[Rfam]
RNA: Bacterial RNase P class A
RNA sequence: CAAGUAAGACAGGUGAUCGCAUCUGCAUGCGCCGAAAGGCCGCAGAUGAGGAAAGUCCGGGCUUCACAGGGCAGGAUGCCGGAUAACGUCCGGUGGAGGCGACUCCAAGGAAAGUGCAACAGAAAUGAACCGCCUUCUUCUGGAAGGUAAGGGUGGAAGGGCAGUGUAAGAGACUACCGCCUCUCUGGUAACAGAGAGGGCACAUGUAAACCCCAUCCGAAGCAAGACCGGAAAAAGACAAUGUGGUGGCCCGUCACGUCUUAGGUUGGUUGCUCGAGCCCAUCGGCGACGAUGGGCCUGGAUAGAUGAUCACUCAACGACAUAACCCGGCUUAUCGUUUUGCUUGCAUU
Numbered sequence: 001c002a003a004g005u006a007a008g009a010c011a012g013g014u015g016a017u018c019g020c021a022u023c024u025g026c027a028u029g030c031g032c033c034g035a036a037a038g039g040c041c042g043c044a045g046a047u048g049a050g051g052a053a054a055g056u057c058c059g060g061g062c063u064u065c066a067c068a069g070g071g072c073a074g075g076a077u078g079c080c081g082g083a084u085a086a087c088g089u090c091c092g093g094u095g096g097a098g099g100c101g102a103c104u105c106c107a108a109g110g111a112a113a114g115u116g117c118a119a120c121a122g123a124a125a126u127g128a129a130c131c132g133c134c135u136u137c138u139u140c141u142g143g144a145a146g147g148u149a150a151g152g153g154u155g156g157a158a159g160g161g162c163a164g165u166g167u168a169a170g171a172g173a174c175u176a177c178c179g180c181c182u183c184u185c186u187g188g189u190a191a192c193a194g195a196g197a198g199g200g201c202a203c204a205u206g207u208a209a210a211c212c213c214c215a216u217c218c219g220a221a222g223c224a225a226g227a228c229c230g231g232a233a234a235a236a237g238a239c240a241a242u243g244u245g246g247u248g249g250c251c252c253g254u255c256a257c258g259u260c261u262u263a264g265g266u267u268g269g270u271u272g273c274u275c276g277a278g279c280c281c282a283u284c285g286g287c288g289a290c291g292a293u294g295g296g297c298c299u300g301g302a303u304a305g306a307u308g309a310u311c312a313c314u315c316a317a318c319g320a321c322a323u324a325a326c327c328c329g330g331c332u333u334a335u336c337g338u339u340u341u342g343c344u345u346g347c348a349u350u
Stems, first nucleotide, its partner, number of pairs: 001346010011335001012314007020048007053333003057330005062222004069252004074218005079093005094108001095106004109213002114211002116207003130152002132148007160178002163175003179201001180199008226271004236261004243257005278297008